Purine riboswitch aptamer: a 97-nucleotide RNA sequence from Fructobacillus durionis. Riboswitches are metabolite binding domains within certain messenger RNAs that serve as precision sensors for their corresponding targets. Allosteric rearrangement of mRNA structure is mediated by ligand binding, and this results in modulation of gene expression. A class of riboswitches that selectively recognises guanine and becomes saturated at concentrations as low as 5 nM. In Bacillus subtilis, this mRNA motif is located on at least five separate transcriptional units that together encode 17 genes that are mostly involved in purine transport and purine nucleotide biosynthesis. It has also been shown that some members of this family are specific for adenine instead. Lineage of the source: Bacteria > Bacillati > Bacilli > Lactobacillaceae > Fructobacillus.
[Rfam]
RNA sequence: AACAAUUCAAGAAAAUUUACAGAUAUAUCGCUGGAAAAUGGCCAGCAGUCUCUACCGCGCCCCCAAAGUCGUGACUAUCCGUGAAUGUUUCGCUUUU
Numbered sequence: 001a002a003c004a005a006u007u008c009a010a011g012a013a014a015a016u017u018u019a020c021a022g023a024u025a026u027a028u029c030g031c032u033g034g035a036a037a038a039u040g041g042c043c044a045g046c047a048g049u050c051u052c053u054a055c056c057g058c059g060c061c062c063c064c065a066a067a068g069u070c071g072u073g074a075c076u077a078u079c080c081g082u083g084a085a086u087g088u089u090u091c092g093c094u095u096u097u
Stems, first nucleotide, its partner, number of pairs: 018083003022079004030046005056073004061068001